Small nucleolar RNA Z188: a 107-nucleotide RNA sequence from Oryza punctata. By type it is a C/D-box small nucleolar RNA. The match comes from Rfam's covariance-model search (99 bits). The source organism's lineage runs through Eukaryota, Streptophytina, Poales, Poaceae and Oryza. Gene Ontology terms of the family: nucleolus and RNA processing. For this family Rfam cites "The high diversity of snoRNAs in plants: identification and comparative study of 120 snoRNA genes from Oryza sativa" (Chen et al., Nucleic Acids Res, 2003).
RNA sequence: GCGUGCCGAUGAUGAUUAAAGAGCUAAGAAUGGUGAAUUCGAUGAAUGUGCUUCCGUGCCGCUGGGUGCGCAGCUGUUGUGAUAUACAUUCUUACGCAGAGGCACGC
Numbered sequence: 001g002c003g004u005g006c007c008g009a010u011g012a013u014g015a016u017u018a019a020a021g022a023g024c025u026a027a028g029a030a031u032g033g034u035g036a037a038u039u040c041g042a043u044g045a046a047u048g049u050g051c052u053u054c055c056g057u058g059c060c061g062c063u064g065g066g067u068g069c070g071c072a073g074c075u076g077u078u079g080u081g082a083u084a085u086a087c088a089u090u091c092u093u094a095c096g097c098a099g100a101g102g103c104a105c106g107c
Stems, first nucleotide, its partner, number of pairs: 002106006